A member of the RNA family "Lysine riboswitch aptamer" from Pseudoalteromonas rubra, 174 nucleotides long. A search with the family's covariance model found it, with a score of 96 bits. Riboswitches are metabolite binding domains within certain messenger RNAs that serve as precision sensors for their corresponding targets. The family's consensus secondary structure is taken from published work.
[Rfam]
RNA sequence: AUAAACAGAAGAGGCGCGAUGCUUAGGUAGCUGAUGUGAGGUGACGAUAACCCGUGACCAUCAGUGAGGGAAGUACUCGCCGAGGAAAACCAUGCUACGUCGGCGUGAUUUUUCGGUCCUGGAGGUUGAAUCCUCGGGACUGUCACCGUUUUCAGGUGGAGAGCUUCUGGCAGA
Numbered sequence: 001a002u003a004a005a006c007a008g009a010a011g012a013g014g015c016g017c018g019a020u021g022c023u024u025a026g027g028u029a030g031c032u033g034a035u036g037u038g039a040g041g042u043g044a045c046g047a048u049a050a051c052c053c054g055u056g057a058c059c060a061u062c063a064g065u066g067a068g069g070g071a072a073g074u075a076c077u078c079g080c081c082g083a084g085g086a087a088a089a090c091c092a093u094g095c096u097a098c099g100u101c102g103g104c105g106u107g108a109u110u111u112u113u114c115g116g117u118c119c120u121g122g123a124g125g126u127u128g129a130a131u132c133c134u135c136g137g138g139a140c141u142g143u144c145a146c147c148g149u150u151u152u153c154a155g156g157u158g159g160a161g162a163g164c165u166u167c168u169g170g171c172a173g174a
Stems, first nucleotide, its partner, number of pairs: 006169006016080004021074004030065007084114006091107005115141007123134003143159005